[Rfam]
RNA sequence: CAGAUACCCGGAAACGGAACCUCCUCCCUCCGUUUCCGGGGUGACCAGCCAGCACCUCCUCCCGCUGGCUCGUAACAGGAAAAGGCCGGCACCUCCUCCCGCCGGCCUUUUCUUUU
Number, nucleotide and partner (000 for none) at each position: 001c000002a000003g000004a000005u000006a000007c040008c039009c038010g000011g036012a035013a034014a033015c032016g031017g030018a000019a000020c000021c000022u000023c000024c000025u000026c000027c000028c000029u000030c017031c016032g015033u014034u013035u012036c011037c000038g009039g008040g007041g000042u000043g071044a070045c000046c000047a000048g069049c068050c067051a066052g065053c000054a000055c000056c000057u000058c000059c000060u000061c000062c000063c000064g000065c052066u051067g050068g049069c048070u044071c043072g000073u000074a000075a000076c000077a000078g000079g000080a111081a110082a109083a108084g107085g106086c105087c104088g103089g102090c101091a000092c000093c000094u000095c000096c000097u000098c000099c000100c000101g090102c089103c088104g087105g086106c085107c084108u083109u082110u081111u080112c000113u000114u000115u000116u000

Source information:
Alphaproteobacterial ar14: a 116-nucleotide RNA sequence from Mesorhizobium sp. Rfam describes the family as follows. Smr14C2 was renamed NfeR1 (Nodule Formation Efficiency RNA) highly expressed in salt stress and during the symbiotic interaction on legume roots. For this family Rfam cites "A survey of sRNA families in alpha-proteobacteria" (del Val et al., RNA Biol, 2012). The pairing is the family consensus, mapped onto this sequence. It is annotated as a small RNA.